The record is a 290-nucleotide sequence, which matches "Soft rot Enterobacteriaceae Rev 39 5'UTR" in Rfam. About the family: From bacteria cultured under starvation conditions.
Nucleotides: 290
Stems, first nucleotide, its partner, number of pairs: 006032004012026001015022002037073002040071001042069001044066003048062001049058002083248003092240001097234003100230001103227003107117003119139005125134003140159002143156004162188001167184002170181002194222003198218005205212002249281006258269002
Number, partner (000 for none) and nucleotide at each position: 001000a002000u003000a004000u005000c006032u007031u008030g009029u010000a011000c012026u013000a014000u015022u016021u017000a018000c019000a020000a021016a022015a023000c024000c025000u026012a027000u028000g029009g030008u031007a032006a033000c034000u035000c036000u037073u038072u039000a040071g041000g042069c043000a044066u045065u046064c047000c048062u049058u050057c051000g052000a053000a054000c055000a056000a057050g058049a059000u060000g061000c062048a063000a064046g065045a066044a067000a068000a069042g070000a071040c072038a073037a074000a075000a076000u077000g078000a079000c080000a081000g082000c083248c084247c085246u086000u087000c088000u089000a090000c091000g092240a093000g094000u095000g096000a097234u098233u099232a100230g101000c102000c103227u104226g105225g106000u107117c108116g109115u110000g111000a112000u113000u114000a115109g116108c117107g118000u119139g120138g121137u122136g123135g124000u125134g126133a127132u128000u129000a130000u131000u132127a133126u134125c135123c136122c137121a138120c139119c140159g141158u142000u143156c144155g145154g146153g147000g148000c149000u150000g151000c152000a153146c154145u155144u156143g157000g158141a159140c160000g161000a162188g163000g164000a165000a166000a167184g168183g169000c170181u171180u172000a173000g174000a175000g176000a177000u178000c179000a180171a181170g182000c183168c184167u185000u186000a187000a188162c189000g190000a191000a192000c193000u194222a195221a196220g197000a198218c199217c200216c201215c202214g203000c204000a205212c206211c207000g208000a209000a210000a211206g212205g213000c214202c215201g216200g217199g218198g219000g220196u221195u222194u223000u224000u225105u226104u227103g228000a229000c230100c231000u232099u233098a234097a235000a236000a237000a238000c239000a240092u241000a242000a243000c244000c245000g246085a247084g248083g249281a250280g251279c252278a253277g254276a255000c256000a257000a258269u259268g260000a261000a262000u263000a264000a265000c266000a267000g268259c269258a270000c271000a272000a273000a274000a275000u276254u277253c278252u279251g280250u281249u282000u283000c284000u285000c286000a287000a288000g289000a290000u